[Rfam]
RNA sequence: UGGUAGAUGCACCCUGAUGAUCGCCCCUGACACUUGUGCCAGGGGUUUUAUUU
Dot-bracket structure: .(((......)))..........((((((.((....)).))))))........
Numbered sequence: 001u002g003g004u005a006g007a008u009g010c011a012c013c014c015u016g017a018u019g020a021u022c023g024c025c026c027c028u029g030a031c032a033c034u035u036g037u038g039c040c041a042g043g044g045g046u047u048u049u050a051u052u053u
Stems, first nucleotide, its partner, number of pairs: 002013003024045006031038002